[Rfam]
Lysine riboswitch aptamer: a 177-nucleotide RNA sequence from Pasteurella bettyae. Riboswitches are metabolite binding domains within certain messenger RNAs that serve as precision sensors for their corresponding targets. The family's consensus secondary structure is taken from published work.

RNA sequence: UAUACGGGUAGAGGUGCGGAUAUUAUUAGUAUUUUUCCUGAGUGGAUAACGUUGAAGGAAAAUGAAAGGAAUAUUUGCCGAAAUCAGUUAGGCGUCAUCUUAACUGGUUGGGAGCGUUUCCGAAAGGAACGUUACUGCCAUAGUAUUUUUGAUUAACUAUGGAGCGCUACUAGUUUA
Numbered sequence: 001u002a003u004a005c006g007g008g009u010a011g012a013g014g015u016g017c018g019g020a021u022a023u024u025a026u027u028a029g030u031a032u033u034u035u036u037c038c039u040g041a042g043u044g045g046a047u048a049a050c051g052u053u054g055a056a057g058g059a060a061a062a063u064g065a066a067a068g069g070a071a072u073a074u075u076u077g078c079c080g081a082a083a084u085c086a087g088u089u090a091g092g093c094g095u096c097a098u099c100u101u102a103a104c105u106g107g108u109u110g111g112g113a114g115c116g117u118u119u120c121c122g123a124a125a126g127g128a129a130c131g132u133u134a135c136u137g138c139c140a141u142a143g144u145a146u147u148u149u150u151g152a153u154u155a156a157c158u159a160u161g162g163a164g165c166g167c168u169a170c171u172a173g174u175u176u177a
Stems, first nucleotide, its partner, number of pairs: 007171005016078009033062007082109011110136002113133008138162007